A member of the RNA family "Eukaryotic large subunit ribosomal RNA" from Salmo salar, 455 nucleotides of a longer RNA.
RNA sequence: CGGGUGGGGUCCGCGCAGUCUGCCCGGAGGAUUCAACUCGGCGGGUCAGGGUCGGCCGUUCCGGUGUGGUCGGAUCCCCUCGUGGGACUGACCCCUGGUCGGGCUCGGCCCCCGCCGGGCGCAUUUCCUCCGUCGGUGGUGCGCCGCGACCGGCUCUGGGUCGGCUUGGAAGGGCUUGGGGCGAAGGUGGCUACCGGUUUCGGCCGUGAGCUUUACAGCGCUCCUGCUCCGUACUCGCCGCUUUCCGGGGCCGAGGACUUAGUACCCGCUGCGUCAUGUCCCCCUGCGGGGGGGCACGGGGCCCUUUGCCCCCGGCGCGACUGUCAACCGGGUCGGACUGUCCUCAGUGCGCACCCAACCGCGUUGCGUCGCCAGGGUAGGGAUCGGCUCACGUAAACUGGCGCCAGGGGUCAGCGGCGAUGUCGGCAACCCACCCGACCCGUCUUGAAACACGG
Numbered sequence: 001c002g003g004g005u006g007g008g009g010u011c012c013g014c015g016c017a018g019u020c021u022g023c024c025c026g027g028a029g030g031a032u033u034c035a036a037c038u039c040g041g042c043g044g045g046u047c048a049g050g051g052u053c054g055g056c057c058g059u060u061c062c063g064g065u066g067u068g069g070u071c072g073g074a075u076c077c078c079c080u081c082g083u084g085g086g087a088c089u090g091a092c093c094c095c096u097g098g099u100c101g102g103g104c105u106c107g108g109c110c111c112c113c114g115c116c117g118g119g120c121g122c123a124u125u126u127c128c129u130c131c132g133u134c135g136g137u138g139g140u141g142c143g144c145c146g147c148g149a150c151c152g153g154c155u156c157u158g159g160g161u162c163g164g165c166u167u168g169g170a171a172g173g174g175c176u177u178g179g180g181g182c183g184a185a186g187g188u189g190g191c192u193a194c195c196g197g198u199u200u201c202g203g204c205c206g207u208g209a210g211c212u213u214u215a216c217a218g219c220g221c222u223c224c225u226g227c228u229c230c231g232u233a234c235u236c237g238c239c240g241c242u243u244u245c246c247g248g249g250g251c252c253g254a255g256g257a258c259u260u261a262g263u264a265c266c267c268g269c270u271g272c273g274u275c276a277u278g279u280c281c282c283c284c285u286g287c288g289g290g291g292g293g294g295c296a297c298g299g300g301g302c303c304c305u306u307u308g309c310c311c312c313c314g315g316c317g318c319g320a321c322u323g324u325c326a327a328c329c330g331g332g333u334c335g336g337a338c339u340g341u342c343c344u345c346a347g348u349g350c351g352c353a354c355c356c357a358a359c360c361g362c363g364u365u366g367c368g369u370c371g372c373c374a375g376g377g378u379a380g381g382g383a384u385c386g387g388c389u390c391a392c393g394u395a396a397a398c399u400g401g402c403g404c405c406a407g408g409g410g411u412c413a414g415c416g417g418c419g420a421u422g423u424c425g426g427c428a429a430c431c432c433a434c435c436c437g438a439c440c441c442g443u444c445u446u447g448a449a450a451c452a453c454g455g
Base pairs, nucleotide, nucleotide: 001437002436003435004434005433006432007431008430010428012426017137020136021135022134024132026130142419143418144417145416146415147414440455441454442453443452
Dot-bracket structure: ((((((((.(.(....(..(((.(.(.......................................................................................................).).))))....((((((..........................................................................................................................................................................................................................................................................))))))......).).))))))))..((((........))))
The sequence is in the family's curated seed alignment. The family's consensus secondary structure is taken from published work.